The record is a 109-nucleotide RNA from Prunus persica, which matches "mir-172 microRNA precursor family" in Rfam. A search with the family's covariance model found it, with a score of 86 bits. For this family Rfam cites "Computational Identification of Plant MicroRNAs and Their Targets, Including a Stress-Induced miRNA" (Jones-Rhoades and Bartel, Mol Cell, 2004).
[Rfam]
RNA sequence: UUGUUUGCGGAUGGAGCAUCAUCAAGAUUCACAAUUUCUUGGGGCUAGCUGCUUUGCUAUUGGCCCUUUGAUGAUAUGGGAAUCUUGAUGAUGCUGCAGCGGCAAUAAA
Numbered sequence: 001u002u003g004u005u006u007g008c009g010g011a012u013g014g015a016g017c018a019u020c021a022u023c024a025a026g027a028u029u030c031a032c033a034a035u036u037u038c039u040u041g042g043g044g045c046u047a048g049c050u051g052c053u054u055u056g057c058u059a060u061u062g063g064c065c066c067u068u069u070g071a072u073g074a075u076a077u078g079g080g081a082a083u084c085u086u087g088a089u090g091a092u093g094c095u096g097c098a099g100c101g102g103c104a105a106u107a108a109a
Stems, first nucleotide, its partner, number of pairs: 010100001012098002015095016032078002